Nucleotides: 095
Base pairs, nucleotide, nucleotide: 001095002094003093004092005091006090007089044050045049
Number, partner (000 for none) and nucleotide at each position: 001095u002094g003093u004092a005091u006090c007089a008000g009000a010000g011000g012000a013000u014000g015000a016000a017000a018000c019000c020000u021000c022000a023000a024000a025000u026000c027000a028000a029000u030000c031000u032000u033000a034000g035000g036000a037000c038000a039000c040000c041000u042000u043000c044050u045049g046000a047000c048000a049045c050044a051000g052000u053000a054000c055000a056000u057000g058000u059000g060000c061000u062000g063000u064000g065000a066000a067000u068000g069000a070000g071000a072000a073000g074000g075000c076000a077000a078000u079000u080000c081000u082000u083000u084000u085000c086000u087000g088000a089007u090006g091005a092004u093003a094002u095001g

Shown here is a 95-nucleotide sequence from Digitaria exilis, a member of the family "Small nucleolar RNA snoR31/Z110/Z27".
The family's consensus secondary structure was predicted with PFOLD.
For this family Rfam cites "Identification of 66 box C/D snoRNAs in Arabidopsis thaliana: extensive gene duplications generated multiple isoforms predicting new ribosomal RNA 2'-O-methylation sites" (Barneche et al., J Mol Biol, 2001).
Rfam's curators write: This family contains several related snoRNAs including R31, Z27 and Z110.
The family has 8 seed sequences and 571 matches in Rfam 15.1.